RNA: mir-344 microRNA precursor family
Organism: Microtus ochrogaster
RNA sequence: UUAGCAGUCAGGCUCCUGGCUAGAGUCCAGCUCAGCUGGUAGCUGCUCUAGCCAUAGCCUGACAGUACA
Dot-bracket structure: ......(((.((((..((((((((..(((((...))))).......)))))))).)))).)))......